[Rfam]
RNA sequence: UAAAGCACACUCCUUUUUUGAUUUGGUUUGGUCACUUUAAUCUUACAAGGUUGUGUGCUUUUUGCGU
Numbered sequence: 001u002a003a004a005g006c007a008c009a010c011u012c013c014u015u016u017u018u019u020g021a022u023u024u025g026g027u028u029u030g031g032u033c034a035c036u037u038u039a040a041u042c043u044u045a046c047a048a049g050g051u052u053g054u055g056u057g058c059u060u061u062u063u064g065c066g067u
Stems, first nucleotide, its partner, number of pairs: 002061009012050004020042004025037001026035002

Background
The family of this 67-nucleotide RNA from Enterococcus lacertideformus is "Enterococcus sRNA 64". Rfam classes the family as a small RNA. The base pairs follow the family's consensus structure, which was predicted with RNAfold.